[Rfam]
RNA sequence: ACGACCUUACUUGAACAGGAUCUGUUCUAUAGGAUCGUACCUCUGUAUCCUUUAACACUAAGGAGACAGGAACCUAAGUCUGGUUGAGGAAUCAUGACCGUGUGAUCAUAGCGUGAGUAACGGCUUGAUGAUUCCAGUGAUCAUCAUGGCUAUAGAGGAUCGUUCUCCAGCCAUUGACUUGGAUGGGGAUGGUCAUGCGGUUGUCUGACAGGCU
Dot-bracket structure: (((.(((.....((((((...))))))...))).).))....((((.(((((.......))))).))))........(((((..............((((((((((((.((((......(.((((((((((((.....)))))))).)))).).......)))).((((.(((......))).))))..)))))))))))).......))))).
Numbered sequence: 001a002c003g004a005c006c007u008u009a010c011u012u013g014a015a016c017a018g019g020a021u022c023u024g025u026u027c028u029a030u031a032g033g034a035u036c037g038u039a040c041c042u043c044u045g046u047a048u049c050c051u052u053u054a055a056c057a058c059u060a061a062g063g064a065g066a067c068a069g070g071a072a073c074c075u076a077a078g079u080c081u082g083g084u085u086g087a088g089g090a091a092u093c094a095u096g097a098c099c100g101u102g103u104g105a106u107c108a109u110a111g112c113g114u115g116a117g118u119a120a121c122g123g124c125u126u127g128a129u130g131a132u133u134c135c136a137g138u139g140a141u142c143a144u145c146a147u148g149g150c151u152a153u154a155g156a157g158g159a160u161c162g163u164u165c166u167c168c169a170g171c172c173a174u175u176g177a178c179u180u181g182g183a184u185g186g187g188g189a190u191g192g193u194c195a196u197g198c199g200g201u202u203g204u205c206u207g208a209c210a211g212g213c214u
Stems, first nucleotide, its partner, number of pairs: 001038002003035001005033003013027006043069004048064005078213005097201012110164004120153001122151004126146008166187004171182003